Shown here is a 274-nucleotide sequence from Thermococcus kodakarensis, a member of the family "HgcG RNA (Pab40)". Rfam's curators put it in the seed alignment. Taxonomically the source falls in Thermococcus kodakarensis (Archaea, Methanobacteriota, Thermococcaceae, Thermococcus). The family's RNA type in Rfam is H/ACA-box small nucleolar RNA. For this family Rfam cites "Combined in silico and experimental identification of the Pyrococcus abyssi H/ACA sRNAs and their target sites in ribosomal RNAs" (Muller et al., Nucleic Acids Res, 2008).
RNA sequence: CUGAUGGAAGCGAUUGCAGACCAUCAAUUUAUAAACCUGUCAGUGGAGAAUAAAAUGCCCCUGCGCGAGGACCCCGGGGAGAAUGAACCGGGGGGCGAUGCGGGGGCAACAGCCCGGCCUCAGCGAGGUCCCCGCGGGAGGGCCUUCCGCGUCCCGGAGCACGAUGACCGCGGGAAACCCAGGCCGGGCACAGUUCUGGCCCGCCAGGGUUAGCCCGCCCAAGGGUGGCGUACGCCUUCGAUGAGGGCGGGAGUUACCGGCGGGCCAUAUUCUC
Numbered sequence: 001c002u003g004a005u006g007g008a009a010g011c012g013a014u015u016g017c018a019g020a021c022c023a024u025c026a027a028u029u030u031a032u033a034a035a036c037c038u039g040u041c042a043g044u045g046g047a048g049a050a051u052a053a054a055a056u057g058c059c060c061c062u063g064c065g066c067g068a069g070g071a072c073c074c075c076g077g078g079g080a081g082a083a084u085g086a087a088c089c090g091g092g093g094g095g096c097g098a099u100g101c102g103g104g105g106g107c108a109a110c111a112g113c114c115c116g117g118c119c120u121c122a123g124c125g126a127g128g129u130c131c132c133c134g135c136g137g138g139a140g141g142g143c144c145u146u147c148c149g150c151g152u153c154c155c156g157g158a159g160c161a162c163g164a165u166g167a168c169c170g171c172g173g174g175a176a177a178c179c180c181a182g183g184c185c186g187g188g189c190a191c192a193g194u195u196c197u198g199g200c201c202c203g204c205c206a207g208g209g210u211u212a213g214c215c216c217g218c219c220c221a222a223g224g225g226u227g228g229c230g231u232a233c234g235c236c237u238u239c240g241a242u243g244a245g246g247g248c249g250g251g252a253g254u255u256a257c258c259g260g261c262g263g264g265c266c267a268u269a270u271u272c273u274c
Base pairs, nucleotide, nucleotide: 057107058106059105060104061103062102063101064100072093073092074091075090076089077088112189113188114187115186116185117184118183119182124136125135127133128132148170151168152167153166157162198266199265200264201263202262203261204260205259207257214251215250216249217248218247219246220245227236228235